[Rfam]
A member of the RNA family "U12 minor spliceosomal RNA" from Drosophila erecta, 208 nucleotides long. Rfam classes the family as a spliceosomal small nuclear RNA. Pairs were carried over by alignment from the consensus structure. Rfam 15.1 lists 2,106 matches to the family in 1,170 species.
RNA sequence: GUGCCUCAAACUAAUGAGUAAGGAAAACCAAGAAGCCUUGCUAAUCGCUUGGCAGUUUGGCUUCUAGGCAGGGGGGCGUCCUGCGUCCCCUGAAGCUAAAUUUUUGCAAGGGCACAGGUCGUCCCCUCCUUCCCCGAGUGGGAGGCGUCCGGCCGAGCGAACCGGCGCCUACUUUGCGUCCGGCUAGCGAGGCUCAGGGUGCCACCCA
Numbered sequence: 001g002u003g004c005c006u007c008a009a010a011c012u013a014a015u016g017a018g019u020a021a022g023g024a025a026a027a028c029c030a031a032g033a034a035g036c037c038u039u040g041c042u043a044a045u046c047g048c049u050u051g052g053c054a055g056u057u058u059g060g061c062u063u064c065u066a067g068g069c070a071g072g073g074g075g076g077c078g079u080c081c082u083g084c085g086u087c088c089c090c091u092g093a094a095g096c097u098a099a100a101u102u103u104u105u106g107c108a109a110g111g112g113c114a115c116a117g118g119u120c121g122u123c124c125c126c127u128c129c130u131u132c133c134c135c136g137a138g139u140g141g142g143a144g145g146c147g148u149c150c151g152g153c154c155g156a157g158c159g160a161a162c163c164g165g166c167g168c169c170u171a172c173u174u175u176g177c178g179u180c181c182g183g184c185u186a187g188c189g190a191g192g193c194u195c196a197g198g199g200u201g202c203c204a205c206c207c208a
Stems, first nucleotide, its partner, number of pairs: 004023003008019001035053003040048001056094005139208004144203007153192002157188002160185001164180005